[Rfam]
The record is a 98-nucleotide RNA, which matches "Mitochondrial DNA control region secondary structure A" in Rfam. The sequence is in the family's curated seed alignment. The family's RNA type in Rfam is antisense RNA.
RNA sequence: AUGUUGUAUGAGCUUCAUAAGACAGUCCUAGUAUUAACCUGCUCAUAAUACUACUAUGUAAUUCGUGCAUUACUGCUAGCCAACAUGUAUAAUAUAUA
Numbered sequence: 001a002u003g004u005u006g007u008a009u010g011a012g013c014u015u016c017a018u019a020a021g022a023c024a025g026u027c028c029u030a031g032u033a034u035u036a037a038c039c040u041g042c043u044c045a046u047a048a049u050a051c052u053a054c055u056a057u058g059u060a061a062u063u064c065g066u067g068c069a070u071u072a073c074u075g076c077u078a079g080c081c082a083a084c085a086u087g088u089a090u091a092a093u094a095u096a097u098a
Stems, first nucleotide, its partner, number of pairs: 005089006012076002018030002021027002031051002034048003056070005
Dot-bracket structure: ....((((((.((....((.((...)).))((.(((.........))).))....(((((.....)))))....)).......)))))).........